[Rfam]
The family of this 135-nucleotide sequence from Pipistrellus kuhlii is "Small nucleolar RNA SNORA43". By type it is an H/ACA-box small nucleolar RNA. Its Rfam clan is "SNORA17 clan". Gene Ontology terms of the family: RNA processing and nucleolus. From the family's description: ACA43 is a member of the H/ACA class of snoRNA that guide the sites of modification of uridines to pseudouridines. The base pairs follow the family's consensus structure, which was predicted with RNAfold. Rfam 15.1 lists 492 matches to the family in 142 species.

RNA sequence: CAGGUGCUGGGCCUGCCAGCACCACAGACGCGGCUGCCGUGCUGCGCCUGUGAGGCCAGGGCGCAGAGGAAAGGGCUUUUCUACGCUCAGCGCUCAGAGCAGUGGGCACUGAGGAUGGUGUGUAGCCUGACAUGC
Numbered sequence: 001c002a003g004g005u006g007c008u009g010g011g012c013c014u015g016c017c018a019g020c021a022c023c024a025c026a027g028a029c030g031c032g033g034c035u036g037c038c039g040u041g042c043u044g045c046g047c048c049u050g051u052g053a054g055g056c057c058a059g060g061g062c063g064c065a066g067a068g069g070a071a072a073g074g075g076c077u078u079u080u081c082u083a084c085g086c087u088c089a090g091c092g093c094u095c096a097g098a099g100c101a102g103u104g105g106g107c108a109c110u111g112a113g114g115a116u117g118g119u120g121u122g123u124a125g126c127c128u129g130a131c132a133u134g135c
Stems, first nucleotide, its partner, number of pairs: 004062002007059004024051004074127003081118003086113002092107005